[Rfam]
Nucleotides: 071
Base pairs, nucleotide, nucleotide: 001069002068003067004066
Number, partner (000 for none) and nucleotide at each position: 001069g002068g003067u004066c005000u006000g007000u008000g009000a010000u011000g012000a013000g014000u015000u016000u017000u018000g019000g020000c021000a022000u023000g024000u025000a026000u027000u028000a029000u030000c031000u032000g033000a034000g035000a036000a037000u038000a039000a040000g041000u042000u043000u044000g045000a046000a047000g048000a049000u050000a051000a052000c053000u054000a055000g056000u057000u058000u059000a060000c061000u062000c063000u064000g065000a066004g067003a068002c069001c070000u071000g